RNA sequence: GCCGUCUUAGCUCAAUGGUAGAGCGUCGCGUUGUGGCCGCGAAGAUUCAGGUUCAACUCCUGGAGACGGUU
Numbered sequence: 001g002c003c004g005u006c007u008u009a010g011c012u013c014a015a016u017g018g019u020a021g022a023g024c025g026u027c028g029c030g031u032u033g034u035g036g037c038c039g040c041g042a043a044g045a046u047u048c049a050g051g052u053u054c055a056a057c058u059c060c061u062g063g064a065g066a067c068g069g070u071u
Stems, first nucleotide, its partner, number of pairs: 001070007010024004026042005047063005
tRNA: a 71-nucleotide RNA sequence from Roseivivax halodurans. The family's RNA type in Rfam is transfer RNA. The family's consensus secondary structure is taken from published work. NCBI's taxonomy places the organism under Bacteria, Pseudomonadati, Pseudomonadota, Roseobacteraceae, Roseivivax halodurans.